[Rfam]
Nucleotides: 090
Base pairs, nucleotide, nucleotide: 006085007084008083009082010081011080012079013078020035021034022033023032037070038069039068040066041065044064045063046062050058051057
Number, partner (000 for none) and nucleotide at each position: 001000a002000c003000c004000g005000c006085c007084g008083a009082c010081g011080c012079g013078g014000g015000a016000g017000a018000g019000u020035c021034c022033g023032u024000c025000a026000c027000c028000g029000u030000c031000g032023a033022u034021g035020g036000c037070g038069c039068c040066g041065a042000a043000g044064g045063g046062g047000c048000a049000a050058c051057c052000u053000c054000c055000c056000c057051g058050g059000a060000a061000c062046c063045u064044c065041u066040c067000a068039g069038g070037c071000a072000c073000c074000c075000a076000g077000a078013c079012c080011g081010c082009g083008u084007c085006g086000c087000g088000c089000c090000g